[Rfam]
RNA sequence: GAGCCGUCCACUUCACAACGGAUCGUCCGGCACGUACCUGCCGGUGAAGGGAAUGGUUU
Numbered sequence: 001g002a003g004c005c006g007u008c009c010a011c012u013u014c015a016c017a018a019c020g021g022a023u024c025g026u027c028c029g030g031c032a033c034g035u036a037c038c039u040g041c042c043g044g045u046g047a048a049g050g051g052a053a054u055g056g057u058u059u
Base pairs, nucleotide, nucleotide: 009051011049012048013047014046015045027044028043029042030041031040032039

Source information: msiK RNA: a 59-nucleotide RNA from Mumia flava. A search with the family's covariance model found it, with a score of 59 bits. Pairs were carried over by alignment from the consensus structure, which is taken from published work. The family has 120 seed sequences and 1,374 matches in Rfam 15.1. NCBI's taxonomy places the organism under Bacteria, Bacillati, Actinomycetota, Actinomycetes, Mumia.